Shown here is a 132-nucleotide RNA from Lactuca sativa, a member of the family "Small nucleolar RNA snoR104".

RNA sequence: AGGGAGCAUUUAAAGUUUAAAUGUUGCCUGAUAUACCCUUCCUACAACAAAAAAUAAAAAUGAAAAAUCUCUGCUUUUCCUACUUGUUGCACGCGAGACAUGUCUGCAAGCCUCUUGACUAUGAGAUACAUA
Numbered sequence: 001a002g003g004g005a006g007c008a009u010u011u012a013a014a015g016u017u018u019a020a021a022u023g024u025u026g027c028c029u030g031a032u033a034u035a036c037c038c039u040u041c042c043u044a045c046a047a048c049a050a051a052a053a054a055u056a057a058a059a060a061u062g063a064a065a066a067a068u069c070u071c072u073g074c075u076u077u078u079c080c081u082a083c084u085u086g087u088u089g090c091a092c093g094c095g096a097g098a099c100a101u102g103u104c105u106g107c108a109a110g111c112c113u114c115u116u117g118a119c120u121a122u123g124a125g126a127u128a129c130a131u132a
Stems, first nucleotide, its partner, number of pairs: 001029003005025007068126003083110005089104001090102002
For this family Rfam cites "Experimental RNomics: identification of 140 candidates for small non-messenger RNAs in the plant Arabidopsis thaliana" (Marker et al., Curr Biol, 2002). It scores 45 bits against the family's covariance model. The family's consensus secondary structure was predicted with WAR. Rfam links the family to the GO terms nucleolus and RNA processing. The family's RNA type in Rfam is H/ACA-box small nucleolar RNA.